The family of this 127-nucleotide sequence from Salipaludibacillus keqinensis is "epsC RNA". By type it is a cis-regulatory element. Rfam 15.1 lists 450 matches to the family in 334 species. A search with the family's covariance model found it, with a score of 92 bits. NCBI's taxonomy places the organism under Bacteria, Bacillota, Bacilli, Caryophanales, Salipaludibacillus.
RNA sequence: GGGUCAUUUCUCCAAUACCCUUAUCAAUGGAGGAACUCGGCUUUGCUGUGGGUUGGUUUUAUAAAUAGAACAACCUUAGGCGCAAGGGGUUGCCAUUGGUGAAGUGUGAGGUCAGGUUUAAUGCCUG
Numbered sequence: 001g002g003g004u005c006a007u008u009u010c011u012c013c014a015a016u017a018c019c020c021u022u023a024u025c026a027a028u029g030g031a032g033g034a035a036c037u038c039g040g041c042u043u044u045g046c047u048g049u050g051g052g053u054u055g056g057u058u059u060u061a062u063a064a065a066u067a068g069a070a071c072a073a074c075c076u077u078a079g080g081c082g083c084a085a086g087g088g089g090u091u092g093c094c095a096u097u098g099g100u101g102a103a104g105u106g107u108g109a110g111g112u113c114a115g116g117u118u119u120a121a122u123g124c125c126u127g
Stems, first nucleotide, its partner, number of pairs: 001020004007035007036110004040105008050076006057069003079094004113127005